[Rfam]
RNA: U5 spliceosomal RNA
Organism: Triticum turgidum
RNA sequence: AGCUGCGUGGUGAGCACAAAGCGAACUAUUCUUUCGCCUUUUACUAAAGAAUACCGUGUGCACGCCACAAUGAGCAGCAUACCAUAAUUUUUAAAGGGUCCUUGCUCUUUUGAGGAGU
Numbered sequence: 001a002g003c004u005g006c007g008u009g010g011u012g013a014g015c016a017c018a019a020a021g022c023g024a025a026c027u028a029u030u031c032u033u034u035c036g037c038c039u040u041u042u043a044c045u046a047a048a049g050a051a052u053a054c055c056g057u058g059u060g061c062a063c064g065c066c067a068c069a070a071u072g073a074g075c076a077g078c079a080u081a082c083c084a085u086a087a088u089u090u091u092u093a094a095a096g097g098g099u100c101c102u103u104g105c106u107c108u109u110u111u112g113a114g115g116a117g118u
Stems, first nucleotide, its partner, number of pairs: 003077004008067005014061005027053008095118001099117001101115003